[Rfam]
RNA sequence: GAACCAUCCAGAGCGGCCGAGAGACUUGGCUCGACGACGCCGCAGCAACCCCCUCCGAGGGUCGGUGCUUCCGCCAAGGACGAUGGAGG
Numbered sequence: 001g002a003a004c005c006a007u008c009c010a011g012a013g014c015g016g017c018c019g020a021g022a023g024a025c026u027u028g029g030c031u032c033g034a035c036g037a038c039g040c041c042g043c044a045g046c047a048a049c050c051c052c053c054u055c056c057g058a059g060g061g062u063c064g065g066u067g068c069u070u071c072c073g074c075c076a077a078g079g080a081c082g083a084u085g086g087a088g089g
Stems, first nucleotide, its partner, number of pairs: 004086005013043005021032003026077004044069004049065002051061004073081001
The family of this 89-nucleotide RNA sequence from Kineococcus aurantiacus is "SAM riboswitch aptamer (S box leader)". Pairs were carried over by alignment from the consensus structure, which is taken from published work. Gene Ontology term of the family: regulation of gene expression.